The family of this 71-nucleotide sequence from Cuculus canorus is "Small nucleolar RNA SNORD26". The match comes from Rfam's covariance-model search (47 bits). A reference for the family is Tycowski et al. (1996), "A mammalian gene with introns instead of exons generating stable RNA products", Nature. It is annotated as a C/D-box small nucleolar RNA. Pairs were carried over by alignment from the consensus structure, which was predicted with PFOLD.
RNA sequence: CCGCAGGGAUGAGCCACGGAACUCUCUCUUUCCGACGCUCGUGGGGAAAUCUCAAGACUGCUCUGAGCGGC
Number, nucleotide and partner (000 for none) at each position: 001c070002c069003g068004c067005a000006g000007g000008g000009a000010u000011g000012a000013g000014c000015c000016a000017c000018g000019g000020a000021a000022c000023u000024c000025u000026c000027u000028c000029u000030u000031u000032c000033c000034g000035a000036c000037g000038c000039u000040c000041g000042u000043g000044g000045g000046g000047a000048a000049a000050u000051c000052u000053c000054a000055a000056g000057a000058c000059u000060g000061c000062u000063c000064u000065g000066a000067g004068c003069g002070g001071c000